Shown here is a 52-nucleotide sequence from Mesorhizobium japonicum, a member of the family "ffh sRNA". The literature on the family includes a 2009 paper in BMC Genomics by Meyer et al., "Identification of candidate structured RNAs in the marine organism 'Candidatus Pelagibacter ubique'". The source organism's lineage runs through Bacteria, Alphaproteobacteria, Hyphomicrobiales, Phyllobacteriaceae and Mesorhizobium japonicum. The family's consensus secondary structure is taken from published work. Rfam's curators put it in the seed alignment.

[Rfam]
RNA sequence: GAUCCUGGAGGCCAACACCCGGCAGCGCAAUGCGCCCCCGGGUGCUUUUUGG
Numbered sequence: 001g002a003u004c005c006u007g008g009a010g011g012c013c014a015a016c017a018c019c020c021g022g023c024a025g026c027g028c029a030a031u032g033c034g035c036c037c038c039c040g041g042g043u044g045c046u047u048u049u050u051g052g
Stems, first nucleotide, its partner, number of pairs: 016044007025035004